[Rfam]
A member of the RNA family "Lysine riboswitch aptamer" from Andreesenia angusta, 149 nucleotides long.
A search with the family's covariance model found it, with a score of 83 bits.
RNA sequence: GUGUGAUAAAGAGGCCGCGGUUUUAAAGAGUAGUCUAUCGACGAAAGGUGAAAUCGCCGAAAUGCAUUUUAUGUGUUGGGACUAUGCUGAACAAGUAUAGUACUGUCAACAGGGGUUUGCCCAGUUUCCUGUUGGAGUACUUAUCAUAU
Numbered sequence: 001g002u003g004u005g006a007u008a009a010a011g012a013g014g015c016c017g018c019g020g021u022u023u024u025a026a027a028g029a030g031u032a033g034u035c036u037a038u039c040g041a042c043g044a045a046a047g048g049u050g051a052a053a054u055c056g057c058c059g060a061a062a063u064g065c066a067u068u069u070u071a072u073g074u075g076u077u078g079g080g081a082c083u084a085u086g087c088u089g090a091a092c093a094a095g096u097a098u099a100g101u102a103c104u105g106u107c108a109a110c111a112g113g114g115g116u117u118u119g120c121c122c123a124g125u126u127u128c129c130u131g132u133u134g135g136a137g138u139a140c141u142u143a144u145c146a147u148a149u
Stems, first nucleotide, its partner, number of pairs: 005145003009142003017057009033042003061077007078104002081101008106135010